[Rfam]
RNA sequence: AGCUUUUCGAAUCAGUGCAGAGAUUUCGUCAGACACCAACCCAUUAGGGCCGAUCAGAUUUCCAAGAUAAGUGAAAUU
Numbered sequence: 001a002g003c004u005u006u007u008c009g010a011a012u013c014a015g016u017g018c019a020g021a022g023a024u025u026u027c028g029u030c031a032g033a034c035a036c037c038a039a040c041c042c043a044u045u046a047g048g049g050c051c052g053a054u055c056a057g058a059u060u061u062c063c064a065a066g067a068u069a070a071g072u073g074a075a076a077u078u
Base pairs, nucleotide, nucleotide: 002077004075005074006073008071011068012067013066016064017063020061021060022059024058025057026056028054029053030052
Shown here is a 78-nucleotide sequence from Schistosoma curassoni, a member of the family "mir-3492 microRNA precursor family". NCBI's taxonomy places the organism under Eukaryota, Metazoa, Eumetazoa, Trematoda, Schistosoma. Rfam 15.1 lists 21,496 matches to the family in 13 species.